Shown here is a 37-nucleotide RNA from Aphyllorchis montana, a member of the family "Plastid psbT antisense RNA".
Rfam 15.1 lists 1,866 matches to the family in 287 species.
The base pairs follow the family's consensus structure, which was predicted with LocARNA.
About the family: Plastid-psbT-asRNA is an antisense RNA (asRNA) motif reported in Plastids It has been shown that psbT expression is controlled by two antisense RNAs originated from psbN transcription by the nuclear-encoded polymerase (NEP), in which the short antisense RNA hybridizes to psbT CDS, thereby stabilizing psbT transcript while blocking its translation during photooxidative stress.
The sequence is in the family's curated seed alignment.
Lineage of the source: Eukaryota > Streptophytina > Epidendroideae > Neottieae > Aphyllorchis.

[Rfam]
RNA sequence: GUAGUUGGAUCUCCAAUUUUUUGGAAUGCUCCAAUCU
Dot-bracket structure: ..((((((....))))))..(((((....)))))...